[Rfam]
RNA: FGF-1 internal ribosome entry site (IRES)
Organism: Callorhinus ursinus
RNA sequence: GACUCCAGGGGAAUGAGGGCCUCAUCUCCUUUUGGGGAAGGACACUCCCUUCUGAUGGAGAAUGGGAACUCCCUCCCGCAGCGGCCUGCCUGCUAGCUCCAGCUAGCUCAGUGUGGACUCCAUAGGCUGCUGAGGCCUCGCCUGCGACCCUCACCCCGUAAAGAAAGUGCCUCAGAGC
Numbered sequence: 001g002a003c004u005c006c007a008g009g010g011g012a013a014u015g016a017g018g019g020c021c022u023c024a025u026c027u028c029c030u031u032u033u034g035g036g037g038a039a040g041g042a043c044a045c046u047c048c049c050u051u052c053u054g055a056u057g058g059a060g061a062a063u064g065g066g067a068a069c070u071c072c073c074u075c076c077c078g079c080a081g082c083g084g085c086c087u088g089c090c091u092g093c094u095a096g097c098u099c100c101a102g103c104u105a106g107c108u109c110a111g112u113g114u115g116g117a118c119u120c121c122a123u124a125g126g127c128u129g130c131u132g133a134g135g136c137c138u139c140g141c142c143u144g145c146g147a148c149c150c151u152c153a154c155c156c157c158g159u160a161a162a163g164a165a166a167g168u169g170c171c172u173c174a175g176a177g178c
Stems, first nucleotide, its partner, number of pairs: 003177003008173004014164001016050004025041003029037002051160001053158001058079001060076001062074001064073003081154001083149002090144001092142001100140001